This 107-nucleotide sequence from Rhizobium subbaraonis belongs to the Rfam family "Rhizobiales sRNA Atu_At1".
For this family Rfam cites "Deep sequencing uncovers numerous small RNAs on all four replicons of the plant pathogen Agrobacterium tumefaciens" (Wilms et al., RNA Biol, 2012).

RNA sequence: AAGUGUGCUGUGUCAACCGGACGCGAUGACAUGGAGAAUAUGAGGGUUUUUCCGGUUUCACCUUAUAGCCAACGAACUGGCAGGCGAGCUCCUACCUCAUCCAGCGC
Numbered sequence: 001a002a003g004u005g006u007g008c009u010g011u012g013u014c015a016a017c018c019g020g021a022c023g024c025g026a027u028g029a030c031a032u033g034g035a036g037a038a039u040a041u042g043a044g045g046g047u048u049u050u051u052c053c054g055g056u057u058u059c060a061c062c063u064u065a066u067a068g069c070c071a072a073c074g075a076a077c078u079g080g081c082a083g084g085c086g087a088g089c090u091c092c093u094a095c096c097u098c099a100u101c102c103a104g105c106g107c
Stems, first nucleotide, its partner, number of pairs: 006106004011023004025101005033092004039067007068081003

Rfam classes the family as a small RNA. The source organism's lineage runs through Bacteria, Pseudomonadati, Pseudomonadota, Alphaproteobacteria and Rhizobium.